[Rfam]
Annotation:
The record is a 263-nucleotide sequence from Peromyscus maniculatus, which matches "Small Cajal body specific RNA 6" in Rfam. Gene Ontology terms of the family: RNA processing and nucleolus. From the family's description: U88 is small Cajal body specific RNA (scaRNA). scaRNAs are a novel class of small nuclear RNAs which localise to the Cajal bodies. It is annotated as a small Cajal body RNA. Lineage of the source: Eukaryota > Dipnotetrapodomorpha > Myomorpha > Neotominae > Peromyscus maniculatus.

RNA sequence: GGUCAAUGAUGAAUAGUAAAAGGUCUGACUUCCGAGGUCGCCUACCAGCAUCCUGCAUCCCCAGCUGCUUGCCUCUUUCCCAUCAUGCUCUAGUAGUGCUGUCAUGGGCAAAACAGUAGCUGACAUGUAGUGAUGUCUCCAUUCUGUGCUCUCUGACAAGCCAGGGAAGACGCUGGUUGGCAUCCAACAGCUUAGUCUCAAAGGGAUUGGAUCGUUGGGAGUGCUGGCGUCCUUGGCUGUGAUCUGACUUUCAAGCUGAGACC
Numbered sequence: 001g002g003u004c005a006a007u008g009a010u011g012a013a014u015a016g017u018a019a020a021a022g023g024u025c026u027g028a029c030u031u032c033c034g035a036g037g038u039c040g041c042c043u044a045c046c047a048g049c050a051u052c053c054u055g056c057a058u059c060c061c062c063a064g065c066u067g068c069u070u071g072c073c074u075c076u077u078u079c080c081c082a083u084c085a086u087g088c089u090c091u092a093g094u095a096g097u098g099c100u101g102u103c104a105u106g107g108g109c110a111a112a113a114c115a116g117u118a119g120c121u122g123a124c125a126u127g128u129a130g131u132g133a134u135g136u137c138u139c140c141a142u143u144c145u146g147u148g149c150u151c152u153c154u155g156a157c158a159a160g161c162c163a164g165g166g167a168a169g170a171c172g173c174u175g176g177u178u179g180g181c182a183u184c185c186a187a188c189a190g191c192u193u194a195g196u197c198u199c200a201a202a203g204g205g206a207u208u209g210g211a212u213c214g215u216u217g218g219g220a221g222u223g224c225u226g227g228c229g230u231c232c233u234u235g236g237c238u239g240u241g242a243u244c245u246g247a248c249u250u251u252c253a254a255g256c257u258g259a260g261a262c263c
Stems, first nucleotide, its partner, number of pairs: 001263004035245005042221002045218005058206004062122007079108005085102003088098001130185001132184006145172003150167006